[Rfam]
The family of this 155-nucleotide RNA from Lysinibacter cavernae is "FMN riboswitch aptamer (RFN element)". The base pairs follow the family's consensus structure, which is taken from published work. A search with the family's covariance model found it, with a score of 79 bits. The RFN element is a highly conserved domain that is found frequently in the 5'-untranslated regions of prokaryotic mRNAs that encode for flavin mononucleotide (FMN) biosynthesis and transport proteins.
RNA sequence: UAAUGCUCCGGGGUCGGUGAGAAUCCGAACCGGCGGUGAUAGUCCGCGACCCGAGUCAGAUGAAACACUCAGACCCGGUUGAGCUGGUGAAAUUCCAGCACCGACGGUGAUGCGUCCACACAGGUGGACGUUAGUCCGGAUGAGAGGAAGCAUUG
Numbered sequence: 001u002a003a004u005g006c007u008c009c010g011g012g013g014u015c016g017g018u019g020a021g022a023a024u025c026c027g028a029a030c031c032g033g034c035g036g037u038g039a040u041a042g043u044c045c046g047c048g049a050c051c052c053g054a055g056u057c058a059g060a061u062g063a064a065a066c067a068c069u070c071a072g073a074c075c076c077g078g079u080u081g082a083g084c085u086g087g088u089g090a091a092a093u094u095c096c097a098g099c100a101c102c103g104a105c106g107g108u109g110a111u112g113c114g115u116c117c118a119c120a121c122a123g124g125u126g127g128a129c130g131u132u133a134g135u136c137c138g139g140a141u142g143a144g145a146g147g148a149a150g151c152a153u154u155g
Stems, first nucleotide, its partner, number of pairs: 003153004007147002015027003031103002033047004042101002051078002083099005105138003